The record is a 149-nucleotide sequence from Thermomonas hydrothermalis, which matches "FMN riboswitch aptamer (RFN element)" in Rfam.

[Rfam]
RNA sequence: AAACGUCUUCAGGGCGGGGUGGAAGUCCCCACCGGCGGUAGGCACGGUGCGCCGUGCGAGCCCGCGAGCGCUUCCCGCCACCGGGAAGGUCAGCAGACCCGGUCAAAUGCCGGGGCCGACGGUCACAGUCCGGAAGAAAGAAGACGCAU
Numbered sequence: 001a002a003a004c005g006u007c008u009u010c011a012g013g014g015c016g017g018g019g020u021g022g023a024a025g026u027c028c029c030c031a032c033c034g035g036c037g038g039u040a041g042g043c044a045c046g047g048u049g050c051g052c053c054g055u056g057c058g059a060g061c062c063c064g065c066g067a068g069c070g071c072u073u074c075c076c077g078c079c080a081c082c083g084g085g086a087a088g089g090u091c092a093g094c095a096g097a098c099c100c101g102g103u104c105a106a107a108u109g110c111c112g113g114g115g116c117c118g119a120c121g122g123u124c125a126c127a128g129u130c131c132g133g134a135a136g137a138a139a140g141a142a143g144a145c146g147c148a149u
Base pairs, nucleotide, nucleotide: 004146005145006144007143008142009141010140017029018028019027031129032128033118034117035065036064037063038062060116061115068094069093098114099113100112101111102110120132121131122130

Notes
The base pairs follow the family's consensus structure, which is taken from published work. A search with the family's covariance model found it, with a score of 105 bits. Taxonomically the source falls in Thermomonas (Bacteria, Pseudomonadota, Gammaproteobacteria, Lysobacterales).